[Rfam]
RNA sequence: UGACCCUGGAAAUCCAGAGUGGGUGGGGCCUGUCUGACCAUUUCUAGGCGACCCACUCUUGGUUUCCAGGGUUG
Numbered sequence: 001u002g003a004c005c006c007u008g009g010a011a012a013u014c015c016a017g018a019g020u021g022g023g024u025g026g027g028g029c030c031u032g033u034c035u036g037a038c039c040a041u042u043u044c045u046a047g048g049c050g051a052c053c054c055a056c057u058c059u060u061g062g063u064u065u066c067c068a069g070g071g072u073u074g
Base pairs, nucleotide, nucleotide: 002073003072004071005070006069007068009066010065011064012063013062014061016059017058021054022053023052024051028049029048030047031046
The family of this 74-nucleotide RNA from Macaca mulatta is "mir-551 microRNA precursor family".
On this family, see Murchison et al., Genome Res 2008: "Conservation of small RNA pathways in platypus".
The source organism's lineage runs through Eukaryota, Craniata, Sarcopterygii, Amniota and Macaca.
Pairs were carried over by alignment from the consensus structure, which was predicted with RNAalifold.